[Rfam]
RNA: chrB-b RNA
RNA sequence: CCGGGAUAGCAGCCUCCCGGCCCGCAAGGGUAGACGGUGUCUCGUCCAAGUGCUGG
Numbered sequence: 001c002c003g004g005g006a007u008a009g010c011a012g013c014c015u016c017c018c019g020g021c022c023c024g025c026a027a028g029g030g031u032a033g034a035c036g037g038u039g040u041c042u043c044g045u046c047c048a049a050g051u052g053c054u055g056g
Base pairs, nucleotide, nucleotide: 001020002019003018004017005016006015010055011054012053013052033046034045035044036043037042